Record summary
mir-204 microRNA precursor family: an 88-nucleotide sequence from Gasterosteus aculeatus. Rfam links the family to the GO terms miRNA-mediated post-transcriptional gene silencing and RISC complex. For this family Rfam cites "Conservation of small RNA pathways in platypus" (Murchison et al., Genome Res, 2008). A search with the family's covariance model found it, with a score of 75 bits.
[Rfam]
RNA sequence: AUGUGACCCGUGGGUUUCCCUUUGUCAUCCUUUGCCUGGAGGUGUCUGUAAGGCAGCGGCAGCAAAGGGAGGCUCAGCCAUCACUCAC
Numbered sequence: 001a002u003g004u005g006a007c008c009c010g011u012g013g014g015u016u017u018c019c020c021u022u023u024g025u026c027a028u029c030c031u032u033u034g035c036c037u038g039g040a041g042g043u044g045u046c047u048g049u050a051a052g053g054c055a056g057c058g059g060c061a062g063c064a065a066a067g068g069g070a071g072g073c074u075c076a077g078c079c080a081u082c083a084c085u086c087a088c
Stems, first nucleotide, its partner, number of pairs: 017070006024063002028059002031056002034054004